[Rfam]
RNA sequence: CGAGAUAUCUUUCAUAAGACUCAUAUAAUAUUGGGGAUAUGGCCCAAAAGUUUCUACCGGACGACCAACGGAAUCGUCCGACUAUGAGUGAGAGCGAGCGCACC
Numbered sequence: 001c002g003a004g005a006u007a008u009c010u011u012u013c014a015u016a017a018g019a020c021u022c023a024u025a026u027a028a029u030a031u032u033g034g035g036g037a038u039a040u041g042g043c044c045c046a047a048a049a050g051u052u053u054c055u056a057c058c059g060g061a062c063g064a065c066c067a068a069c070g071g072a073a074u075c076g077u078c079c080g081a082c083u084a085u086g087a088g089u090g091a092g093a094g095c096g097a098g099c100g101c102a103c104c
Stems, first nucleotide, its partner, number of pairs: 019089007029049001031047005058080007